The family of this 81-nucleotide RNA sequence from Labrus bergylta is "mir-459 microRNA precursor family".
The family's consensus secondary structure was predicted with RNAalifold.
Its family is annotated with miRNA-mediated post-transcriptional gene silencing and RISC complex in the Gene Ontology.
The organism belongs to Labrus, within Eukaryota.

RNA sequence: CUUCUCGCUGUCAGUAACAAGGAUUCAUCCUGUUGUGAUGCUGCAAGCUGACAGGAAAUCACUGUUACUGUGGGCGAGGGC
Numbered sequence: 001c002u003u004c005u006c007g008c009u010g011u012c013a014g015u016a017a018c019a020a021g022g023a024u025u026c027a028u029c030c031u032g033u034u035g036u037g038a039u040g041c042u043g044c045a046a047g048c049u050g051a052c053a054g055g056a057a058a059u060c061a062c063u064g065u066u067a068c069u070g071u072g073g074g075c076g077a078g079g080g081c
Stems, first nucleotide, its partner, number of pairs: 012070008022060004029055007037048001039046001